[Rfam]
RNA sequence: CUACUCCCUCUGUCACACAAUAUAAGAACAUUUUUUAAACUAACAUAGCUUGAAAAACGUUCUUAUAUUAUGGGACGGAGGCAGUAG
Numbered sequence: 001c002u003a004c005u006c007c008c009u010c011u012g013u014c015a016c017a018c019a020a021u022a023u024a025a026g027a028a029c030a031u032u033u034u035u036u037a038a039a040c041u042a043a044c045a046u047a048g049c050u051u052g053a054a055a056a057a058c059g060u061u062c063u064u065a066u067a068u069u070a071u072g073g074g075a076c077g078g079a080g081g082c083a084g085u086a087g
Stems, first nucleotide, its partner, number of pairs: 003085003007081005013075002016072002019069011031057008040048002

This 87-nucleotide RNA from Triticum aestivum belongs to the Rfam family "MIR1120/MIR1122 microRNA precursor family". The family has 6 seed sequences and 44,765 matches in Rfam 15.1. Gene Ontology terms of the family: RISC complex and miRNA-mediated post-transcriptional gene silencing. The literature on the family includes a 2007 paper in Genome Biol by Yao et al., "Cloning and characterization of microRNAs from wheat (Triticum aestivum L.)". The match comes from Rfam's covariance-model search (86 bits).